[Rfam]
RNA sequence: GGACUUGAAGGACGGCUCCGAUGCGACUAUCUUCAGCAUGUCUCGCAAGGGACUAUGGACAUAAACGCGCAUGUAAUAAGCGGAUCGGACCCGGGGGCGGUACCCGGCGGCUCCACCAAACCACCCGUCAUUGGGGUGCAUGGGGCCGAAAUAGGAUCGACGGACGUCUAAAGAUGUUGCUUUGUCUCGGUGAGGUACCACCGUUAUCGGUCCGGAAAAGUACAAUUGCCAAUGACAAUCGUGCUCCGGUUGCGGUUGCCGCUUAAGCGGUAACUAGACCGAAAUUGAAGCCCUUGCCCCUAGCAGGGUAAGGCGGGGUUCGCAGGCACCUGGCAACAGAAGCCUGCACU
Numbered sequence: 001g002g003a004c005u006u007g008a009a010g011g012a013c014g015g016c017u018c019c020g021a022u023g024c025g026a027c028u029a030u031c032u033u034c035a036g037c038a039u040g041u042c043u044c045g046c047a048a049g050g051g052a053c054u055a056u057g058g059a060c061a062u063a064a065a066c067g068c069g070c071a072u073g074u075a076a077u078a079a080g081c082g083g084a085u086c087g088g089a090c091c092c093g094g095g096g097g098c099g100g101u102a103c104c105c106g107g108c109g110g111c112u113c114c115a116c117c118a119a120a121c122c123a124c125c126c127g128u129c130a131u132u133g134g135g136g137u138g139c140a141u142g143g144g145g146c147c148g149a150a151a152u153a154g155g156a157u158c159g160a161c162g163g164a165c166g167u168c169u170a171a172a173g174a175u176g177u178u179g180c181u182u183u184g185u186c187u188c189g190g191u192g193a194g195g196u197a198c199c200a201c202c203g204u205u206a207u208c209g210g211u212c213c214g215g216a217a218a219a220g221u222a223c224a225a226u227u228g229c230c231a232a233u234g235a236c237a238a239u240c241g242u243g244c245u246c247c248g249g250u251u252g253c254g255g256u257u258g259c260c261g262c263u264u265a266a267g268c269g270g271u272a273a274c275u276a277g278a279c280c281g282a283a284a285u286u287g288a289a290g291c292c293c294u295u296g297c298c299c300c301u302a303g304c305a306g307g308g309u310a311a312g313g314c315g316g317g318g319u320u321c322g323c324a325g326g327c328a329c330c331u332g333g334c335a336a337c338a339g340a341a342g343c344c345u346g347c348a349c350u
Base pairs, nucleotide, nucleotide: 040053041052042051043050044049057187058186059185060184061183067180068179069177070176071175072174081166082165085163086162087161091107092106093105094104095103108148109147110146111145112144113143114142188203189202190201191200194213195212197211198210199209316331317330318329319328322347323346324345325344326343327342